The record is a 474-nucleotide RNA sequence from Hymenobacter telluris, which matches "Bacterial RNase P class A" in Rfam. Rfam classes the family as a ribozyme. It scores 242 bits against the family's covariance model. The source organism's lineage runs through Bacteria, Pseudomonadati, Bacteroidota, Cytophagales and Hymenobacter.
RNA sequence: GUGAUGAGUCGCUCCACCGCGGCGCCGCAAGGCGACGAGGAAAGUCCGGGCAACGCAGAGCACCCUGCUUCCUAACGGGAAGGAUGUGCCGUAAGGUGCAGACAGCCAGUGCCACAGAAAACUACCGCCAGACGGUGAAAUGGUGUGUUGGUGAAAUAGUGAGUUGCUGUUCAAUCUGCGCAAGCGGAACGAUAAACUCACCAUUUCACAAUUUCACCACCUCACCUUUGGUAAGGGUGAAAAGGUGCGGUAAGAGCGCACCAGCGGGCGGGUGACCGAUCCGGCUGGGUAAACCUCAGGGGUUGAAAGACCAAAUAAGCGGGCACGCCGGCCUUCGGGCUGGCACCGGGCGGCUCGUCCGGCGUCCGUGGGUAGGUUGAUGGAGCCUUUCCGCGAGGACUGGCCUAGAUAAAUGGUGGAGACGUUGCCUUUCGGGGCAGCGUACAAAACCCGGCUUACAGACUUGUCACCCAC
Numbered sequence: 001g002u003g004a005u006g007a008g009u010c011g012c013u014c015c016a017c018c019g020c021g022g023c024g025c026c027g028c029a030a031g032g033c034g035a036c037g038a039g040g041a042a043a044g045u046c047c048g049g050g051c052a053a054c055g056c057a058g059a060g061c062a063c064c065c066u067g068c069u070u071c072c073u074a075a076c077g078g079g080a081a082g083g084a085u086g087u088g089c090c091g092u093a094a095g096g097u098g099c100a101g102a103c104a105g106c107c108a109g110u111g112c113c114a115c116a117g118a119a120a121a122c123u124a125c126c127g128c129c130a131g132a133c134g135g136u137g138a139a140a141u142g143g144u145g146u147g148u149u150g151g152u153g154a155a156a157u158a159g160u161g162a163g164u165u166g167c168u169g170u171u172c173a174a175u176c177u178g179c180g181c182a183a184g185c186g187g188a189a190c191g192a193u194a195a196a197c198u199c200a201c202c203a204u205u206u207c208a209c210a211a212u213u214u215c216a217c218c219a220c221c222u223c224a225c226c227u228u229u230g231g232u233a234a235g236g237g238u239g240a241a242a243a244g245g246u247g248c249g250g251u252a253a254g255a256g257c258g259c260a261c262c263a264g265c266g267g268g269c270g271g272g273u274g275a276c277c278g279a280u281c282c283g284g285c286u287g288g289g290u291a292a293a294c295c296u297c298a299g300g301g302g303u304u305g306a307a308a309g310a311c312c313a314a315a316u317a318a319g320c321g322g323g324c325a326c327g328c329c330g331g332c333c334u335u336c337g338g339g340c341u342g343g344c345a346c347c348g349g350g351c352g353g354c355u356c357g358u359c360c361g362g363c364g365u366c367c368g369u370g371g372g373u374a375g376g377u378u379g380a381u382g383g384a385g386c387c388u389u390u391c392c393g394c395g396a397g398g399a400c401u402g403g404c405c406u407a408g409a410u411a412a413a414u415g416g417u418g419g420a421g422a423c424g425u426u427g428c429c430u431u432u433c434g435g436g437g438c439a440g441c442g443u444a445c446a447a448a449a450c451c452c453g454g455c456u457u458a459c460a461g462a463c464u465u466g467u468c469a470c471c472c473a474c
Base pairs, nucleotide, nucleotide: 001470002469003468004467005466006465007464008463009462010461011459012421013420014419015418016417017416018415020037021036023034024033025032026031042457043456044455046454047453048452049451050450051305052304053303054302058356059355060354061353063301064300065299066298067297068082069081070080071079072078083103085100086099087098088097089096090095104296105295109294110293111290112289113288125236126235127232128231129230130229131228132227134225244262245261246260247259248258249257264285265283266282267281268280269278270277271276309378310377311376312375319369320368321367322366323365324364347361348360349359350358351357385404386403387402390399391398392397